[Rfam]
RNA: L31-Actinobacteria ribosomal protein leader
RNA sequence: UCGGUACCGGUUCACGCCUGAGCGCACGCUCAUCAUUCUUCGGCGACCCGGUCC
Numbered sequence: 001u002c003g004g005u006a007c008c009g010g011u012u013c014a015c016g017c018c019u020g021a022g023c024g025c026a027c028g029c030u031c032a033u034c035a036u037u038c039u040u041c042g043g044c045g046a047c048c049c050g051g052u053c054c
Base pairs, nucleotide, nucleotide: 003054004053007051008050009049010048015045016044017043018042020040021039022038